[Rfam]
RNA sequence: GAGUCUGUACUGUGAAGAGAGCUGUCCGUGGACAGUGAUAGUACCGUAUAACUGUCAUGGAAUUGCUCUCUUCAUUGAAAGACUC
Numbered sequence: 001g002a003g004u005c006u007g008u009a010c011u012g013u014g015a016a017g018a019g020a021g022c023u024g025u026c027c028g029u030g031g032a033c034a035g036u037g038a039u040a041g042u043a044c045c046g047u048a049u050a051a052c053u054g055u056c057a058u059g060g061a062a063u064u065g066c067u068c069u070c071u072u073c074a075u076u077g078a079a080a081g082a083c084u085c
Stems, first nucleotide, its partner, number of pairs: 014073005020067003025061004031056003035052002
Dot-bracket structure: .............(((((.(((..((((..(((.((..............)).))).))))...))).)))))............
RNA: mir-46/mir-47/mir-281 microRNA precursor family
Organism: Trichonephila clavipes